[Rfam]
Rfam assigns this 89-nucleotide RNA sequence from Sulfurimicrobium lacus to the family "Burkholderia RNA 7 (anti-hemB)". It scores 72 bits against the family's covariance model. A reference for the family is Weinberg et al. (2007), "Identification of 22 candidate structured RNAs in bacteria using the CMfinder comparative genomics pipeline", Nucleic Acids Res. About the family: This RNA motif was identified by computational search in b-proteobacteria Burkholderia. Co-purified with Hfq, expression confirmed by Northern blot. The family's consensus secondary structure is taken from published work. The organism belongs to Sulfurimicrobium, within Bacteria. Rfam classes the family as a small RNA.

RNA sequence: UCGCCCGCUUCUCCUCCCUGAGCGGGCGCCUUAAUGCUAGUUAAGGCUUCUGCCCCCGGCUUUUUCCCCUUUAGCCGGGGGCUUUUUCU
Numbered sequence: 001u002c003g004c005c006c007g008c009u010u011c012u013c014c015u016c017c018c019u020g021a022g023c024g025g026g027c028g029c030c031u032u033a034a035u036g037c038u039a040g041u042u043a044a045g046g047c048u049u050c051u052g053c054c055c056c057c058g059g060c061u062u063u064u065u066c067c068c069c070u071u072u073a074g075c076c077g078g079g080g081g082c083u084u085u086u087u088c089u
Base pairs, nucleotide, nucleotide: 004026005025006024007023008022009021028047029046030045031044032043033042034041053080054079055078056077058075